[Rfam]
Background:
Shown here is a 507-nucleotide part of an RNA from Candidatus Macondimonas diazotrophica, a member of the family "Bacterial large subunit ribosomal RNA". The literature on the family includes a 2001 paper in Science by Yusupov et al., "Crystal structure of the ribosome at 5.5 A resolution". Gene Ontology terms of the family: structural constituent of ribosome and ribosome. Lineage of the source: Bacteria > Pseudomonadati > Pseudomonadota > Gammaproteobacteria > Candidatus Macondimonas. Its Rfam clan is "LSU clan".
RNA sequence: GAAUAAGCGCACACGGUGGAUGCCUAGGCGGUAGGAGGCGAUGAAGGACGUGGUAGCCUGCGAUAAGCCUCGGGGAGUCGGCAAAUAGACUUUGAUCCGAGGAUUUCCGAAUGGGGAAACCCACCCGCAAGGGUAUCGGCAGCUGAAUACAUAGGCUGUCGAGGCGAACCCGGGGAACUGAAACAUCUAAGUACCCGGAGGAAAAGAAAUCAACCGAGAUUCCCUCAGUAGUGGCGAGCGAACGGGGAGCAGCCCUUAAGUCAUUAAGGUUUUAGCAGAACGGUCUGGAAAGUCCGGCGAUACAGGGUGAUAGCCCCGUAUGCGAAAAGGCCUUAGUGGUGAAAUCGAGUAGGGCGGGACACGUGAAAUCCUGUCUGAACAUGGGGGGACCAUCCUCCAAGGCUAAAUACUACCUACCGACCGAUAGUGAACCAGUACCGUGAGGGAAAGGCGAAAAGAACCCCGGAGAGGGGAGUGAAAUAGAACCUGAAACCGUGUGCGUACAAG
Numbered sequence: 001g002a003a004u005a006a007g008c009g010c011a012c013a014c015g016g017u018g019g020a021u022g023c024c025u026a027g028g029c030g031g032u033a034g035g036a037g038g039c040g041a042u043g044a045a046g047g048a049c050g051u052g053g054u055a056g057c058c059u060g061c062g063a064u065a066a067g068c069c070u071c072g073g074g075g076a077g078u079c080g081g082c083a084a085a086u087a088g089a090c091u092u093u094g095a096u097c098c099g100a101g102g103a104u105u106u107c108c109g110a111a112u113g114g115g116g117a118a119a120c121c122c123a124c125c126c127g128c129a130a131g132g133g134u135a136u137c138g139g140c141a142g143c144u145g146a147a148u149a150c151a152u153a154g155g156c157u158g159u160c161g162a163g164g165c166g167a168a169c170c171c172g173g174g175g176a177a178c179u180g181a182a183a184c185a186u187c188u189a190a191g192u193a194c195c196c197g198g199a200g201g202a203a204a205a206g207a208a209a210u211c212a213a214c215c216g217a218g219a220u221u222c223c224c225u226c227a228g229u230a231g232u233g234g235c236g237a238g239c240g241a242a243c244g245g246g247g248a249g250c251a252g253c254c255c256u257u258a259a260g261u262c263a264u265u266a267a268g269g270u271u272u273u274a275g276c277a278g279a280a281c282g283g284u285c286u287g288g289a290a291a292g293u294c295c296g297g298c299g300a301u302a303c304a305g306g307g308u309g310a311u312a313g314c315c316c317c318g319u320a321u322g323c324g325a326a327a328a329g330g331c332c333u334u335a336g337u338g339g340u341g342a343a344a345u346c347g348a349g350u351a352g353g354g355c356g357g358g359a360c361a362c363g364u365g366a367a368a369u370c371c372u373g374u375c376u377g378a379a380c381a382u383g384g385g386g387g388g389a390c391c392a393u394c395c396u397c398c399a400a401g402g403c404u405a406a407a408u409a410c411u412a413c414c415u416a417c418c419g420a421c422c423g424a425u426a427g428u429g430a431a432c433c434a435g436u437a438c439c440g441u442g443a444g445g446g447a448a449a450g451g452c453g454a455a456a457a458g459a460a461c462c463c464c465g466g467a468g469a470g471g472g473g474a475g476u477g478a479a480a481u482a483g484a485a486c487c488u489g490a491a492a493c494c495g496u497g498u499g500c501g502u503a504c505a506a507g
Stems, first nucleotide, its partner, number of pairs: 007502010022487001023451002027422002029419007036411002038165002046108003049062003068102007077090003113122003123134004136162009169200001170198005180187002210217002220407001221248005231239002251404004261339013275323003281296003285292001299303001305317003352376008383398005438445002461473004